[Rfam]
RNA sequence: AUUUAUAACUAAAUAAAAACUUAUAUAUGCUAGUAAGAUGAACUAGCGUUUCUACGUCUUGUCAAUCUUAAGAUACUAUAGGUUAUGAAAUUUGUAUG
Numbered sequence: 001a002u003u004u005a006u007a008a009c010u011a012a013a014u015a016a017a018a019a020c021u022u023a024u025a026u027a028u029g030c031u032a033g034u035a036a037g038a039u040g041a042a043c044u045a046g047c048g049u050u051u052c053u054a055c056g057u058c059u060u061g062u063c064a065a066u067c068u069u070a071a072g073a074u075a076c077u078a079u080a081g082g083u084u085a086u087g088a089a090a091u092u093u094g095u096a097u098g
Stems, first nucleotide, its partner, number of pairs: 018084008030046005056074006

Record summary:
Rfam assigns this 98-nucleotide RNA sequence from Spiroplasma syrphidicola to the family "Purine riboswitch aptamer". The base pairs follow the family's consensus structure, which is taken from published work. Rfam describes the family as follows. Riboswitches are metabolite binding domains within certain messenger RNAs that serve as precision sensors for their corresponding targets. Allosteric rearrangement of mRNA structure is mediated by ligand binding, and this results in modulation of gene expression. A class of riboswitches that selectively recognises guanine and becomes saturated at concentrations as low as 5 nM. In Bacillus subtilis, this mRNA motif is located on at least five separate transcriptional units that together encode 17 genes that are mostly involved in purine transport and purine nucleotide biosynthesis.